[Rfam]
The family of this 72-nucleotide sequence from Gadus morhua is "mir-10 microRNA precursor family". The organism belongs to Gadus, within Eukaryota. The base pairs follow the family's consensus structure, which was predicted with PFOLD.
RNA sequence: UGACACAAACCCGUAGAUCCGAUCUUGUGGCAAAUAUGACAGCACAAGUUCGCUUCUGCAGGUCUCUGUCAU
Numbered sequence: 001u002g003a004c005a006c007a008a009a010c011c012c013g014u015a016g017a018u019c020c021g022a023u024c025u026u027g028u029g030g031c032a033a034a035u036a037u038g039a040c041a042g043c044a045c046a047a048g049u050u051c052g053c054u055u056c057u058g059c060a061g062g063u064c065u066c067u068g069u070c071a072u
Base pairs, nucleotide, nucleotide: 002070003069004068005067007065010062011061015057016056017055020052021051022050024048025047026046027045028044029043